[Rfam]
RNA sequence: AAAAAAAGGAGCAAUAACGCCCUCUUGUUUUAUCAAGAGGGAAGCUAUUGCUCCUUUUU
Numbered sequence: 001a002a003a004a005a006a007a008g009g010a011g012c013a014a015u016a017a018c019g020c021c022c023u024c025u026u027g028u029u030u031u032a033u034c035a036a037g038a039g040g041g042a043a044g045c046u047a048u049u050g051c052u053c054c055u056u057u058u059u
Stems, first nucleotide, its partner, number of pairs: 005057012022039006
This 59-nucleotide RNA from Helianthus tuberosus belongs to the Rfam family "Plastid-psbA-4 3UTR RNA". From the family's description: Plastid psbA-4 is a non-coding RNA (ncRNA) present in plastids. It was identified in inverted repeat sequences in the 3 prime untranslate region (3UTR) of photosystem II quinone-binding protein (psbA). For this family Rfam cites "Retrograde signaling in plants: A critical review focusing on the GUN pathway and beyond" (Richter et al., Plant Commun, 2023). The family is grouped with related families in Rfam's "Plastid-psbA 3UTR RNA clan".